This 62-nucleotide RNA sequence from Callithrix jacchus belongs to the Rfam family "U7 small nuclear RNA". It scores 65 bits against the family's covariance model. The family has 49 seed sequences and 10,439 matches in Rfam 15.1. The base pairs follow the family's consensus structure, which was predicted with PFOLD.

[Rfam]
RNA sequence: UCAUGUUAUAGCUCUUUUAGAAUUCAUCUAGCAGGCUUUCCGGUUUUUACCAGAAAGCCCCC
Numbered sequence: 001u002c003a004u005g006u007u008a009u010a011g012c013u014c015u016u017u018u019a020g021a022a023u024u025c026a027u028c029u030a031g032c033a034g035g036c037u038u039u040c041c042g043g044u045u046u047u048u049a050c051c052a053g054a055a056a057g058c059c060c061c062c
Stems, first nucleotide, its partner, number of pairs: 034059007042051003